[Rfam]
RNA sequence: UUUAAUCAUUCGCUUAAUCUCCCCACAAGGGAGAGCGGGGGAACCAAGCAGCGAUUCCUUGCAGUCCCGGAUGACAGGAUAUUCCGGAGCGGACUGGAUGGACGAACUGACCUUUUCCAGGGGUGAAUUUUGCCAAAAGGCCUUGAGCAGGCCGAGUAGGCGAAUAGGGCAGCUCUCUUGUCCGAACCCGUCAGCUAACCUCGUAAGCGCAUAUAAGAGAGAUC
Numbered sequence: 001u002u003u004a005a006u007c008a009u010u011c012g013c014u015u016a017a018u019c020u021c022c023c024c025a026c027a028a029g030g031g032a033g034a035g036c037g038g039g040g041g042a043a044c045c046a047a048g049c050a051g052c053g054a055u056u057c058c059u060u061g062c063a064g065u066c067c068c069g070g071a072u073g074a075c076a077g078g079a080u081a082u083u084c085c086g087g088a089g090c091g092g093a094c095u096g097g098a099u100g101g102a103c104g105a106a107c108u109g110a111c112c113u114u115u116u117c118c119a120g121g122g123g124u125g126a127a128u129u130u131u132g133c134c135a136a137a138a139g140g141c142c143u144u145g146a147g148c149a150g151g152c153c154g155a156g157u158a159g160g161c162g163a164a165u166a167g168g169g170c171a172g173c174u175c176u177c178u179u180g181u182c183c184g185a186a187c188c189c190g191u192c193a194g195c196u197a198a199c200c201u202c203g204u205a206a207g208c209g210c211a212u213a214u215a216a217g218a219g220a221g222a223u224c
Stems, first nucleotide, its partner, number of pairs: 011209004018034006035204006045120001121189003129164006167183004
Rfam assigns this 224-nucleotide RNA sequence from Paenibacillus sp. D9 to the family "c-di-AMP riboswitch aptamer (ydaO/yuaA leader)". Lineage of the source: Bacteria > Bacillati > Bacillota > Paenibacillaceae > Paenibacillus. Rfam links the family to the GO terms cyclic-di-AMP binding and regulation of gene expression.